[Rfam]
RNA sequence: CCUGGGGUUGAAACCCCAGGCUGUAUUGAGACGCGCCCUUGGCGCU
Number, nucleotide and partner (000 for none) at each position: 001c020002c019003u018004g017005g016006g015007g014008u013009u000010g000011a000012a000013a008014c007015c006016c005017c004018a003019g002020g001021c000022u000023g000024u000025a000026u000027u000028g000029a000030g000031a000032c000033g045034c044035g043036c042037c041038c000039u000040u000041g037042g036043c035044g034045c033046u000
This 46-nucleotide RNA sequence from Prosthecobacter gellanilyticus belongs to the Rfam family "Acido-Lenti-1 RNA". Pairs were carried over by alignment from the consensus structure, which is taken from published work. The organism belongs to Prosthecobacter, within Bacteria. A search with the family's covariance model found it, with a score of 44 bits.